[Rfam]
Nucleotides: 204
Stems, first nucleotide, its partner, number of pairs: 005200006017029003033152002035079004074150002082107002111148005154187003
Number, partner (000 for none) and nucleotide at each position: 001000c002000a003000c004000a005200a006199u007198u008197c009196u010195c011000a012000g013000g014000g015000c016000g017029g018028g019027g020000u021000g022000a023000a024000a025000c026000u027019c028018c029017c030000c031000a032000c033152c034151g035079g036078c037077g038076g039000u040000a041000a042000a043000u044000c045000a046000g047000g048000c049000u050000g051000c052000a053000a054000c055000u056000u057000a058000a059000g060000u061000u062000g063000c064000a065000g066000c067000c068000a069000u070000g071000a072000a073000a074150g075149c076038c077037c078036g079035c080000g081000a082107g083106c084000g085000c086000c087000c088000a089000g090000g091000c092000c093000u094000u095000g096000c097000c098000u099000g100000g101000g102000g103000u104000c105000a106083g107082c108000a109000g110000a111148u112147c113146u114145g115144g116000u117000g118000c119000c120000u121000c122000a123000c124000c125000c126000g127000c128000a129000g130000a131000c132000u133000c134000g135000g136000g137000u138000g139000c140000c141000a142000u143000u144115c145114c146113a147112g148111a149075g150074c151034c152033g153000a154187c155186g156185g157000u158000a159000a160000u161000g162000c163000u164000c165000a166000g167000c168000a169000g170000u171000c172000c173000u174000g175000c176000u177000g178000a179000c180000c181000g182000a183000g184000u185156c186155c187154g188000g189000a190000u191000g192000g193000a194000a195010g196009a197008g198007a199006a200005u201000a202000u203000g204000a
Background: Shown here is a 204-nucleotide RNA from Shewanella salipaludis, a member of the family "FMN riboswitch aptamer (RFN element)". The match comes from Rfam's covariance-model search (80 bits). The family's consensus secondary structure is taken from published work. The organism belongs to Shewanella, within Bacteria.